RNA sequence: UCCCAAAGCCUUUUGUCAGGGUGAACGUCUCGAUUAAUUUCGGCCUUACUACACAUUUGCCUGUUACGUCUUUGGAAGAUCAAUGCUACCCGCCCGCAGGCCCUUGUUUCAAGGUGCUGUGGCCGUUUUGGCCAUGGCUUUGUCUGCACUGUCGAUAGUUUUUAUUGACGCUAUAGGGUAGAUUUCGGAAUCUUCUUGAGUUGGACUUGCUUGGAGCUGGUCUCCCUACAUAAGCUUGUCCGUAGUAUAGAAUCCGACACUU
Numbered sequence: 001u002c003c004c005a006a007a008g009c010c011u012u013u014u015g016u017c018a019g020g021g022u023g024a025a026c027g028u029c030u031c032g033a034u035u036a037a038u039u040u041c042g043g044c045c046u047u048a049c050u051a052c053a054c055a056u057u058u059g060c061c062u063g064u065u066a067c068g069u070c071u072u073u074g075g076a077a078g079a080u081c082a083a084u085g086c087u088a089c090c091c092g093c094c095c096g097c098a099g100g101c102c103c104u105u106g107u108u109u110c111a112a113g114g115u116g117c118u119g120u121g122g123c124c125g126u127u128u129u130g131g132c133c134a135u136g137g138c139u140u141u142g143u144c145u146g147c148a149c150u151g152u153c154g155a156u157a158g159u160u161u162u163u164a165u166u167g168a169c170g171c172u173a174u175a176g177g178g179u180a181g182a183u184u185u186c187g188g189a190a191u192c193u194u195c196u197u198g199a200g201u202u203g204g205a206c207u208u209g210c211u212u213g214g215a216g217c218u219g220g221u222c223u224c225c226c227u228a229c230a231u232a233a234g235c236u237u238g239u240c241c242g243u244a245g246u247a248u249a250g251a252a253u254c255c256g257a258c259a260c261u262u
Base pairs, nucleotide, nucleotide: 003075004074005073006072007071019062020061021060022059023058024057025056027054028053030043031042032041033040086181087180088179089178090177091176096147097146098145099144100143101142103137151169152168153167154166155165156164157163158162186256187255188254189253191251192250193249202242203241204240205239206238209235210234211233212232213225215223216222